[Rfam]
RNA sequence: AGGAGAAGCCUUCUUUCCUUUAUCAACGAAGGAACUCGUCCAUGCUGUGGGUUGAACAACCUUAGAUGCCGGUCAUCAAAGGUGUGGAGUGAGGACAGGUUAAAGGCCUG
Numbered sequence: 001a002g003g004a005g006a007a008g009c010c011u012u013c014u015u016u017c018c019u020u021u022a023u024c025a026a027c028g029a030a031g032g033a034a035c036u037c038g039u040c041c042a043u044g045c046u047g048u049g050g051g052u053u054g055a056a057c058a059a060c061c062u063u064a065g066a067u068g069c070c071g072g073u074c075a076u077c078a079a080a081g082g083u084g085u086g087g088a089g090u091g092a093g094g095a096c097a098g099g100u101u102a103a104a105g106g107c108c109u110g
Base pairs, nucleotide, nucleotide: 001019002018003017004016009032010031011030012029013028035093036092037091038090039088040087041086042085043084044083045082046081049062050061051060052059053058065077066076067075068074096110097109098108099107100106